[Rfam]
RNA sequence: UGGAGGUCUGAGAAGGUAAGACAGUUUAACUUGAUGCUGUAUCUUACUGGUUAUGGCCUCCAACAUUAAAUCGGUGCAAUGGCAACUCAUGUUUCCCUCCUGACAUGAGGGAAAGCGAAACUGCAUUUG
Numbered sequence: 001u002g003g004a005g006g007u008c009u010g011a012g013a014a015g016g017u018a019a020g021a022c023a024g025u026u027u028a029a030c031u032u033g034a035u036g037c038u039g040u041a042u043c044u045u046a047c048u049g050g051u052u053a054u055g056g057c058c059u060c061c062a063a064c065a066u067u068a069a070a071u072c073g074g075u076g077c078a079a080u081g082g083c084a085a086c087u088c089a090u091g092u093u094u095c096c097c098u099c100c101u102g103a104c105a106u107g108a109g110g111g112a113a114a115g116c117g118a119a120a121c122u123g124c125a126u127u128u129g
Base pairs, nucleotide, nucleotide: 002061003060004059005058006057015048016047017046018045019042021040022039023038024037025036081122082121087117093113094112095111096110097109100107
RNA: Small nucleolar RNA SNORA47